Shown here is a 174-nucleotide RNA from Planococcus massiliensis, a member of the family "Lysine riboswitch aptamer".
[Rfam]
RNA sequence: AGUGAUGAUAGAGGUGCGGCCGUCAAGAGUAGCCAUUCGGAGAUUUGCAGAAUCGAUGAAGAAUGGAGAAAGGGACGCCCGCCGAAGUGUGCUGAAGUUUGCAACUCGCAUGCUGGUCCUGCAUUUAAUAAGUGCUGGGCUGUCAGAGUUUAUCUCUGGAGGGCUAUCUCACAU
Numbered sequence: 001a002g003u004g005a006u007g008a009u010a011g012a013g014g015u016g017c018g019g020c021c022g023u024c025a026a027g028a029g030u031a032g033c034c035a036u037u038c039g040g041a042g043a044u045u046u047g048c049a050g051a052a053u054c055g056a057u058g059a060a061g062a063a064u065g066g067a068g069a070a071a072g073g074g075a076c077g078c079c080c081g082c083c084g085a086a087g088u089g090u091g092c093u094g095a096a097g098u099u100u101g102c103a104a105c106u107c108g109c110a111u112g113c114u115g116g117u118c119c120u121g122c123a124u125u126u127a128a129u130a131a132g133u134g135c136u137g138g139g140c141u142g143u144c145a146g147a148g149u150u151u152a153u154c155u156c157u158g159g160a161g162g163g164c165u166a167u168c169u170c171a172c173a174u
Stems, first nucleotide, its partner, number of pairs: 007168005016082004021077004033066006086114007094107002097105001115141005121135005143159006
It scores 120 bits against the family's covariance model. The base pairs follow the family's consensus structure, which is taken from published work. The source organism's lineage runs through Bacteria, Bacillati, Caryophanales, Caryophanaceae and Planococcus.